Shown here is an 86-nucleotide RNA from Populus trichocarpa, a member of the family "MIR398 microRNA precursor family". Gene Ontology terms of the family: RISC complex and miRNA-mediated post-transcriptional gene silencing. The family has 14 seed sequences and 627 matches in Rfam 15.1. The sequence is in the family's curated seed alignment. The family's consensus secondary structure was predicted with WAR. The source organism's lineage runs through Eukaryota, Pentapetalae, rosids, fabids and Populus.

[Rfam]
RNA sequence: AGGGUUCCGACAGGAGCGGCCUUGGGUCACAUGUGGCGGCAUCCAAUGUACUUCAUGUGUUCUCAGGUCGCCCCUGCCGGGCUUCC
Dot-bracket structure: ......((..((((.((((....(((.(((((......................))))).)))....)))).))))..))......
Numbered sequence: 001a002g003g004g005u006u007c008c009g010a011c012a013g014g015a016g017c018g019g020c021c022u023u024g025g026g027u028c029a030c031a032u033g034u035g036g037c038g039g040c041a042u043c044c045a046a047u048g049u050a051c052u053u054c055a056u057g058u059g060u061u062c063u064c065a066g067g068u069c070g071c072c073c074c075u076g077c078c079g080g081g082c083u084u085c086c
Stems, first nucleotide, its partner, number of pairs: 007080002011076004016071004024063003028059005